Shown here is an 88-nucleotide RNA from Cohnella xylanilytica, a member of the family "c-di-GMP-I-GGC riboswitch aptamer".
Taxonomically the source falls in Cohnella (Bacteria, Bacillota, Bacilli, Caryophanales).
RNA sequence: UACGCCAAGGGCAAACUUGCCGAAAGGCAAGGACGCAAAGCCACAGGGUCUAAUGUUCGCGGGAACGAUGACAGCCUGGCCGCCGGAA
Numbered sequence: 001u002a003c004g005c006c007a008a009g010g011g012c013a014a015a016c017u018u019g020c021c022g023a024a025a026g027g028c029a030a031g032g033a034c035g036c037a038a039a040g041c042c043a044c045a046g047g048g049u050c051u052a053a054u055g056u057u058c059g060c061g062g063g064a065a066c067g068a069u070g071a072c073a074g075c076c077u078g079g080c081c082g083c084c085g086g087a088a
Stems, first nucleotide, its partner, number of pairs: 001088001003085002011036002016031006034074001040080003045077003048072003